[Rfam]
RNA: Histone 3' UTR stem-loop
Organism: Denticeps clupeoides
RNA sequence: ACAAAGGCUCUUUUAAGAGCCACACACUAUGCUCAAAAAUAAAAG
Numbered sequence: 001a002c003a004a005a006g007g008c009u010c011u012u013u014u015a016a017g018a019g020c021c022a023c024a025c026a027c028u029a030u031g032c033u034c035a036a037a038a039a040u041a042a043a044a045g
Stems, first nucleotide, its partner, number of pairs: 006021006